[Rfam]
RNA sequence: AACUUAUCCAGAGCAAGAAGAGGGAAUUGGCCCAAUGAAGUUGCAGCAACCUACCACAUGGCAAGGUGCUAAAUCCAACUCGAAAGAGACAAAUGAGUC
Number, nucleotide and partner (000 for none) at each position: 001a000002a098003c097004u096005u095006a094007u093008c000009c000010a000011g000012a000013g044014c043015a042016a041017g000018a000019a000020g000021a000022g033023g032024g031025a000026a000027u078028u077029g076030g075031c024032c023033c022034a000035a000036u000037g000038a000039a000040g000041u016042u015043g014044c013045a070046g069047c068048a067049a000050c066051c065052u063053a000054c061055c060056a000057c000058a000059u000060g055061g054062c000063a052064a000065g051066g050067u048068g047069c046070u045071a000072a000073a000074u091075c030076c029077a028078a027079c088080u087081c086082g000083a000084a000085a000086g081087a080088g079089a000090c000091a074092a000093a007094u006095g005096a004097g003098u002099c000

SAM riboswitch aptamer (S box leader): a 99-nucleotide sequence from Facklamia miroungae. Rfam describes the family as follows. The SAM riboswitch is found upstream of a number of genes which code for proteins involved in methionine or cysteine biosynthesis in Gram-positive bacteria. The family's consensus secondary structure is taken from published work. The match comes from Rfam's covariance-model search (59 bits). The organism belongs to Facklamia, within Bacteria.